Y RNA: a 78-nucleotide sequence from Pongo abelii.
Y RNAs are components of the Ro ribonucleoprotein particle (Ro RNP), in association with Ro60 and La proteins.
By type it is a non-coding RNA gene.
The source organism's lineage runs through Eukaryota, Dipnotetrapodomorpha, Primates, Haplorrhini and Pongo.
[Rfam]
RNA sequence: AGUUGGUCGGAGGGUUGUGGGUUAUUGUUAAACUGAUUAACGUUGUCUCCCCCCACAGCCAUGCUUGAUUCGCUUUGU
Numbered sequence: 001a002g003u004u005g006g007u008c009g010g011a012g013g014g015u016u017g018u019g020g021g022u023u024a025u026u027g028u029u030a031a032a033c034u035g036a037u038u039a040a041c042g043u044u045g046u047c048u049c050c051c052c053c054c055a056c057a058g059c060c061a062u063g064c065u066u067g068a069u070u071c072g073c074u075u076u077g078u
Stems, first nucleotide, its partner, number of pairs: 001074003005070004010066002014062002016057006026042003030038002